This 323-nucleotide part of an RNA from Pomacea canaliculata belongs to the Rfam family "Eukaryotic large subunit ribosomal RNA".
The source organism's lineage runs through Eukaryota, Metazoa, Spiralia, Ampullarioidea and Pomacea.
RNA sequence: GAGUCUAACAUGCGCGCGAGUCGUUGGGUCUUUUACGAAACCCGAAGGCGAAGUGAAAGCGAGGGCUGCUCUCGCAAGCAGCUCAGGUGGGAUCCCGGUUGUUUGUCACGAUGGCUGGGCGCACCGCCGGCCCGUCUCGUCCGCGUCGUCGGUGAGGCGGAGCAAGAGCGUGCACGUUGGGACCCGAAAGAUGGUGAACUAUGCCUGAGUAGGACGAAGCCAGAGGAAACUCUGGUGGAGGUCCGCAGCGAUUCUGACGUGCAAAUCGAUCGUCAAACUUGGUAUAGGGGCGAAAGACUAAUCGAACCAUCUAGUAGCUGGUU
Numbered sequence: 001g002a003g004u005c006u007a008a009c010a011u012g013c014g015c016g017c018g019a020g021u022c023g024u025u026g027g028g029u030c031u032u033u034u035a036c037g038a039a040a041c042c043c044g045a046a047g048g049c050g051a052a053g054u055g056a057a058a059g060c061g062a063g064g065g066c067u068g069c070u071c072u073c074g075c076a077a078g079c080a081g082c083u084c085a086g087g088u089g090g091g092a093u094c095c096c097g098g099u100u101g102u103u104u105g106u107c108a109c110g111a112u113g114g115c116u117g118g119g120c121g122c123a124c125c126g127c128c129g130g131c132c133c134g135u136c137u138c139g140u141c142c143g144c145g146u147c148g149u150c151g152g153u154g155a156g157g158c159g160g161a162g163c164a165a166g167a168g169c170g171u172g173c174a175c176g177u178u179g180g181g182a183c184c185c186g187a188a189a190g191a192u193g194g195u196g197a198a199c200u201a202u203g204c205c206u207g208a209g210u211a212g213g214a215c216g217a218a219g220c221c222a223g224a225g226g227a228a229a230c231u232c233u234g235g236u237g238g239a240g241g242u243c244c245g246c247a248g249c250g251a252u253u254c255u256g257a258c259g260u261g262c263a264a265a266u267c268g269a270u271c272g273u274c275a276a277a278c279u280u281g282g283u284a285u286a287g288g289g290g291c292g293a294a295a296g297a298c299u300a301a302u303c304g305a306a307c308c309a310u311c312u313a314g315u316a317g318c319u320g321g322u323u
Stems, first nucleotide, its partner, number of pairs: 005180005011174007020049003025044005053060002086128005094119009130163002132160006141151001183321002186318001190311006199287007207280003210276001212244004219236007248273004253269002256267002289299002

A search with the family's covariance model found it, with a score of 3027 bits.